[Rfam]
RNA sequence: CGUUGUGGCUGGAUUAGUGGCCGGCUACAACACAUCUCUCUAUUGGAGGCUCUAUGUCACUAACUACAGCAGAAAAAGCGCAAAUCUUAGCUGAUUUCGCAGUUAAACAA
Number, nucleotide and partner (000 for none) at each position: 001c000002g000003u000004u000005g000006u000007g026008g025009c024010u023011g022012g021013a000014u000015u000016a000017g000018u000019g000020g000021c012022c011023g010024g009025c008026u007027a000028c000029a000030a000031c000032a000033c000034a000035u000036c000037u000038c000039u000040c000041u000042a000043u063044u062045g061046g060047a000048g058049g000050c000051u000052c000053u000054a000055u000056g000057u000058c048059a000060c046061u045062a044063a043064c000065u000066a000067c000068a000069g000070c000071a000072g000073a000074a000075a000076a000077a000078g000079c000080g000081c000082a000083a000084a000085u000086c000087u000088u000089a000090g000091c000092u000093g000094a000095u000096u000097u000098c000099g000100c000101a000102g000103u000104u000105a000106a000107a000108c000109a000110a000
This 110-nucleotide RNA from Rheinheimera mesophila belongs to the Rfam family "Ribosomal S15 leader". Clan: Ribosomal Protein S15 Leader clan. The family's RNA type in Rfam is cis-regulatory leader. The E. coli Ribosomal S15 gene 5' UTR can form two alternative structures. One that is a series of three hairpins, The other includes a pseudoknot. This structure causes translational regulation of the S15 protein. The alignment of this family contains only the final two hairpins which are conserved in other species, and also includes the complete region that forms the alternate structures. The match comes from Rfam's covariance-model search (66 bits). The literature on the family includes a 1996 paper in Biochimie by Benard et al., "Pseudoknot and translational control in the expression of the S15 ribosomal protein".